A member of the RNA family "Small nucleolar RNA SNORA81" from Pteropus vampyrus, 168 nucleotides long. It scores 98 bits against the family's covariance model. The source organism's lineage runs through Eukaryota, Bilateria, Mammalia, Pteropodidae and Pteropus. Its family is annotated with nucleolus and RNA processing in the Gene Ontology. The family's consensus secondary structure was predicted with WAR. A reference for the family is Gu et al. (2005), "A novel experimental approach for systematic identification of box H/ACA snoRNAs from eukaryotes", Nucleic Acids Res.
RNA sequence: ACCUUAUUUAAGCUCUAUGCUUAAAUGGCAGAAACUAGUAUCAUGUCUAAGUAUUUGUAAUAAAGCUAGCAGAGUAGACACAAGAAGAUAAACAGCUAUACCAGAUAGUAGAAAAACUAAGAUGAACCUCUUUCUUAAGUCCUUUGUUCUAAGACUAGUACAAUAAUA
Dot-bracket structure: ..............((.((((....(.(..((.(((.(.((...)).).))).)).....).)....)))).))......................(.(((.((..............(.(..(.(.............).)..).).......)).))).)......
Numbered sequence: 001a002c003c004u005u006a007u008u009u010a011a012g013c014u015c016u017a018u019g020c021u022u023a024a025a026u027g028g029c030a031g032a033a034a035c036u037a038g039u040a041u042c043a044u045g046u047c048u049a050a051g052u053a054u055u056u057g058u059a060a061u062a063a064a065g066c067u068a069g070c071a072g073a074g075u076a077g078a079c080a081c082a083a084g085a086a087g088a089u090a091a092a093c094a095g096c097u098a099u100a101c102c103a104g105a106u107a108g109u110a111g112a113a114a115a116a117c118u119a120a121g122a123u124g125a126a127c128c129u130c131u132u133u134c135u136u137a138a139g140u141c142c143u144u145u146g147u148u149c150u151a152a153g154a155c156u157a158g159u160a161c162a163a164u165a166a167u168a
Stems, first nucleotide, its partner, number of pairs: 015074002018071004026063001028061001031055002034052003038048001040046002097162001099160003103156002119147001121145001124142001126140001